Rfam assigns this 154-nucleotide sequence from Anisodus acutangulus to the family "MIR394 microRNA precursor family". It scores 73 bits against the family's covariance model. Its family is annotated with RISC complex and miRNA-mediated post-transcriptional gene silencing in the Gene Ontology. The base pairs follow the family's consensus structure, which was predicted with WAR. The source organism's lineage runs through Eukaryota, Streptophyta, Embryophyta, Gunneridae and Anisodus. For this family Rfam cites "Computational identification of plant microRNAs and their targets, including a stress-induced miRNA" (Jones-Rhoades and Bartel, Mol Cell, 2004).
RNA sequence: CUUACAGAGUUCAUUGGCAUUCUGUCCACCUCGACUCUUUCUUUUUCUUUGUUUUUUUCUUACUUCAUGAAAGUUAAAAAAAAAAAAAUACAAGACAAAAAAGGAAAGCAAAUUUAACGUGGAGGUGAGCAUACUGCCAACAGAGCUGUGUUGG
Numbered sequence: 001c002u003u004a005c006a007g008a009g010u011u012c013a014u015u016g017g018c019a020u021u022c023u024g025u026c027c028a029c030c031u032c033g034a035c036u037c038u039u040u041c042u043u044u045u046u047c048u049u050u051g052u053u054u055u056u057u058u059c060u061u062a063c064u065u066c067a068u069g070a071a072a073g074u075u076a077a078a079a080a081a082a083a084a085a086a087a088a089u090a091c092a093a094g095a096c097a098a099a100a101a102a103g104g105a106a107a108g109c110a111a112a113u114u115u116a117a118c119g120u121g122g123a124g125g126u127g128a129g130c131a132u133a134c135u136g137c138c139a140a141c142a143g144a145g146c147u148g149u150g151u152u153g154g
Stems, first nucleotide, its partner, number of pairs: 011144001014140006023131003027127006